Rfam assigns this 93-nucleotide sequence from Fusarium langsethiae to the family "tRNA". From the family's description: Transfer RNA (tRNA) molecules are approximately 80 nucleotides in length. Gene Ontology term of the family: triplet codon-amino acid adaptor activity. Pairs were carried over by alignment from the consensus structure, which is taken from published work. The family's RNA type in Rfam is transfer RNA. Taxonomically the source falls in Fusarium sambucinum species complex (Eukaryota, leotiomyceta, Sordariomycetes, Hypocreomycetidae).
[Rfam]
RNA sequence: GCGGGUUUAGCUCAGUUGGGAGAGCGUCAGACUGAAGUCAAACUUCAAUCAUUCGAUAUCUGAAGGUCAUGUGUUCGAUCCACAUAAACCGCA
Numbered sequence: 001g002c003g004g005g006u007u008u009a010g011c012u013c014a015g016u017u018g019g020g021a022g023a024g025c026g027u028c029a030g031a032c033u034g035a036a037g038u039c040a041a042a043c044u045u046c047a048a049u050c051a052u053u054c055g056a057u058a059u060c061u062g063a064a065g066g067u068c069a070u071g072u073g074u075u076c077g078a079u080c081c082a083c084a085u086a087a088a089c090c091g092c093a
Stems, first nucleotide, its partner, number of pairs: 001092004006087002010025004027063005069085005